RNA sequence: GGGUGGGGUAGAGGCGCGAUUGCUAAUAUUAACUAUAUCGAGGUCGGAAACCUAUGACAUAUAGUGAAAGGAGCCGUCGCCGAAGUUUCAGAUACCAAAAUCUGAUGCUGGGUCUGUAUUUAAUAGGUACAGGACUGUCAUCAUCGUAUUUGCUCGAUACUUUGAUGUUGCGCUAUCUCACAU
Numbered sequence: 001g002g003g004u005g006g007g008g009u010a011g012a013g014g015c016g017c018g019a020u021u022g023c024u025a026a027u028a029u030u031a032a033c034u035a036u037a038u039c040g041a042g043g044u045c046g047g048a049a050a051c052c053u054a055u056g057a058c059a060u061a062u063a064g065u066g067a068a069a070g071g072a073g074c075c076g077u078c079g080c081c082g083a084a085g086u087u088u089c090a091g092a093u094a095c096c097a098a099a100a101u102c103u104g105a106u107g108c109u110g111g112g113u114c115u116g117u118a119u120u121u122a123a124u125a126g127g128u129a130c131a132g133g134a135c136u137g138u139c140a141u142c143a144u145c146g147u148a149u150u151u152g153c154u155c156g157a158u159a160c161u162u163u164g165a166u167g168u169u170g171c172g173c174u175a176u177c178u179c180a181c182a183u
Stems, first nucleotide, its partner, number of pairs: 006178006016080005022074003032065007084109003088105006110136002113133008139167005
Background
Lysine riboswitch aptamer: a 183-nucleotide RNA from Clostridium argentinense. For this family Rfam cites "Riboswitches Control Fundamental Biochemical Pathways in Bacillus subtilis and Other Bacteria" (Mandal et al., Cell, 2003). Lineage of the source: Bacteria > Bacillati > Bacillota > Clostridia > Clostridium argentinense. It scores 110 bits against the family's covariance model. Pairs were carried over by alignment from the consensus structure, which is taken from published work.